[Rfam]
RNA sequence: CCGUUUGUCUUUGGGGAGUAGCCCGUUUGGUACGCAAGGUGCCAAAAGCGUGCGUCAACAGACUUGGGGCUUUGCCCUAUGGCGUACGCGGUUCUCUUGUUGGAGCU
Numbered sequence: 001c002c003g004u005u006u007g008u009c010u011u012u013g014g015g016g017a018g019u020a021g022c023c024c025g026u027u028u029g030g031u032a033c034g035c036a037a038g039g040u041g042c043c044a045a046a047a048g049c050g051u052g053c054g055u056c057a058a059c060a061g062a063c064u065u066g067g068g069g070c071u072u073u074g075c076c077c078u079a080u081g082g083c084g085u086a087c088g089c090g091g092u093u094c095u096c097u098u099g100u101u102g103g104a105g106c107u
Stems, first nucleotide, its partner, number of pairs: 026046005048089010065079005
Shown here is a 107-nucleotide RNA sequence from Comamonas terrigena, a member of the family "Manganese Mn2+ riboswitch aptamer (yybP-ykoY)". This RNA was originally discovered in E. coli during a large scale screen and was named SraF. The family was later found to exist upstream of related families of protein genes in many bacteria, including the the yybP and ykoK genes in B. subtilis. The specific functions of these proteins are unknown, but this structured RNA element may be involved in their genetic regulation as a riboswitch. Taxonomically the source falls in Comamonas (Bacteria, Pseudomonadati, Betaproteobacteria, Comamonadaceae). A reference for the family is Argaman et al. (2001), "Novel small RNA-encoding genes in the intergenic regions of Escherichia coli", Curr Biol. The family has 29 seed sequences and 1,126 matches in Rfam 15.1. A search with the family's covariance model found it, with a score of 53 bits.